[Rfam]
RNA: MIR1120/MIR1122 microRNA precursor family
RNA sequence: GUACUCCCUUCAUCCCAUAAUGUAAGACAUUUUUUCACACUAGUGUAGUGUUAAAAAACGUCUUACAUUAUGAGACGGAGGGAGUAG
Numbered sequence: 001g002u003a004c005u006c007c008c009u010u011c012a013u014c015c016c017a018u019a020a021u022g023u024a025a026g027a028c029a030u031u032u033u034u035u036c037a038c039a040c041u042a043g044u045g046u047a048g049u050g051u052u053a054a055a056a057a058a059c060g061u062c063u064u065a066c067a068u069u070a071u072g073a074g075a076c077g078g079a080g081g082g083a084g085u086a087g
Base pairs, nucleotide, nucleotide: 003085004084005083007081008080009079010078011077013075014074016072017071019069020068021067022066023065024064025063026062027061028060030058031057032056033055034054035053037051038050039049040048041047